Description:
This 69-nucleotide RNA from Pedobacter cryoconitis belongs to the Rfam family "DUF805 RNA". Clan: DUF805 clan. The match comes from Rfam's covariance-model search (72 bits).
RNA sequence: GGAGAAUGGAGUCCAGCUGCCAUUUCAAAAACGGGGCGUAUUCCGAAAAGCCAAAUGAGUAGGAGAUCA
Numbered sequence: 001g002g003a004g005a006a007u008g009g010a011g012u013c014c015a016g017c018u019g020c021c022a023u024u025u026c027a028a029a030a031a032c033g034g035g036g037c038g039u040a041u042u043c044c045g046a047a048a049a050g051c052c053a054a055a056u057g058a059g060u061a062g063g064a065g066a067u068c069a
Stems, first nucleotide, its partner, number of pairs: 006023004035052003042063002